A member of the RNA family "Pseudomon-1/ErsA RNA" from Pseudomonas sp. C27(2019), 111 nucleotides long. The source organism's lineage runs through Bacteria, Gammaproteobacteria, Pseudomonadales, Pseudomonadaceae and Pseudomonas. On this family, see Ferrara et al., Environ Microbiol 2015: "Post-transcriptional regulation of the virulence-associated enzyme AlgC by the sigma(22) -dependent small RNA ErsA of Pseudomonas aeruginosa". A search with the family's covariance model found it, with a score of 90 bits. Rfam's curators write: Functions to regulate the AlgC enzyme. Based on this information, the new name ErsA for the RNA was adopted. Negatively regulates major porin oprD expression responsible for uptake of carbapenem antibiotics, by base pairing with oprD 5'UTR (leading to increased bacterial resistance to meropenem).Positively regulates amrZ mRNA and contributes to biofilm formation and motility.

RNA sequence: ACACUCCUUGAUGUGUUUUAUGUUGGCAGAUAUCCGGGCUACCCCCUAGCAGUCCGGGCUUCAACUCCGAAUCUCUCCCCCCGUGAGGUUCGGAGUUUUUUUUGCCUGUUA
Numbered sequence: 001a002c003a004c005u006c007c008u009u010g011a012u013g014u015g016u017u018u019u020a021u022g023u024u025g026g027c028a029g030a031u032a033u034c035c036g037g038g039c040u041a042c043c044c045c046c047u048a049g050c051a052g053u054c055c056g057g058g059c060u061u062c063a064a065c066u067c068c069g070a071a072u073c074u075c076u077c078c079c080c081c082c083g084u085g086a087g088g089u090u091c092g093g094a095g096u097u098u099u100u101u102u103u104g105c106c107u108g109u110u111a
Stems, first nucleotide, its partner, number of pairs: 033058008063098002065095011
Dot-bracket structure: ................................((((((((..........))))))))....(((((((((((((.........))))))))))).)).............